[Rfam]
RNA: Small nucleolar RNA SNORD22
Organism: Rhinolophus ferrumequinum
RNA sequence: UCCCAGGGAAGCAACAUUCACAAGUCUUACCUCCUGCCCUAAUCUCAGAGCCGGUUAAGGUGGACCCACUGGCACUGGCUGGGGGAGAAGAAAGUUUGUUACCAAAGGAACCGUCUGAGGGAC
Dot-bracket structure: ((((..................................................................................................................)))).